[Rfam]
RNA sequence: UGCACUGUGUGGUAAUCUGCAGCCAGCUGUGUGAUCAGCUGGUUUGUUCAAAAAGUCAGUGCUAGACAAACUCAACACCGGCAUCGUUGGUCUCCAUGCUGCCUGUGUUUGGAGUCCUGGUAUAUUUGUUGAAACACUC
Numbered sequence: 001u002g003c004a005c006u007g008u009g010u011g012g013u014a015a016u017c018u019g020c021a022g023c024c025a026g027c028u029g030u031g032u033g034a035u036c037a038g039c040u041g042g043u044u045u046g047u048u049c050a051a052a053a054a055g056u057c058a059g060u061g062c063u064a065g066a067c068a069a070a071c072u073c074a075a076c077a078c079c080g081g082c083a084u085c086g087u088u089g090g091u092c093u094c095c096a097u098g099c100u101g102c103c104u105g106u107g108u109u110u111g112g113a114g115u116c117c118u119g120g121u122a123u124a125u126u127u128g129u130u131g132a133a134a135c136a137c138u139c
Stems, first nucleotide, its partner, number of pairs: 002062006014056001016054001018052001019047004024042001025040005066127001068125001070123001072120003080109005

The family of this 139-nucleotide sequence from Lates calcarifer is "Small nucleolar RNA SNORA8". About the family: ACA8 is a member of the H/ACA class of snoRNA that guide the sites of modification of uridines to pseudouridines. Its Rfam clan is "SNORA8 clan". The family's consensus secondary structure was predicted with RNAfold. The organism belongs to Lates, within Eukaryota. Rfam classes the family as an H/ACA-box small nucleolar RNA.